[Rfam]
RNA sequence: ACCCGAAUCCGGGCCCCUCUGGUAGGUGGGUCGCCACCUAUGAUGUCGGAUUCCUUCA
Number, nucleotide and partner (000 for none) at each position: 001a000002c000003c000004c000005g000006a052007a051008u050009c049010c048011g047012g046013g000014c000015c000016c000017c000018u000019c000020u000021g000022g041023u040024a039025g038026g037027u036028g035029g034030g000031u000032c000033g000034c029035c028036a027037c026038c025039u024040a023041u022042g000043a000044u000045g000046u012047c011048g010049g009050a008051u007052u006053c000054c000055u000056u000057c000058a000
Rfam assigns this 58-nucleotide sequence from Skermanella aerolata to the family "terC RNA". It is annotated as a cis-regulatory element. The family's consensus secondary structure is taken from published work. A search with the family's covariance model found it, with a score of 61 bits.